[Rfam]
RNA sequence: CAGACUCUUGUGACGACCUCACAGUAAACCAGUUCCUUGGCGUGUGAGGUCUGAUGUGUG
Number, nucleotide and partner (000 for none) at each position: 001c000002a000003g000004a059005c058006u000007c000008u000009u000010g000011u000012g000013a000014c000015g051016a050017c049018c048019u047020c046021a045022c044023a043024g000025u000026a000027a000028a000029c000030c039031a038032g037033u000034u000035c000036c000037u032038u031039g030040g000041c000042g000043u023044g022045u021046g020047a019048g018049g017050u016051c015052u000053g000054a000055u000056g000057u000058g005059u004060g000
RNA: Selenocysteine insertion sequence 1
Organism: Muraenolepis orangiensis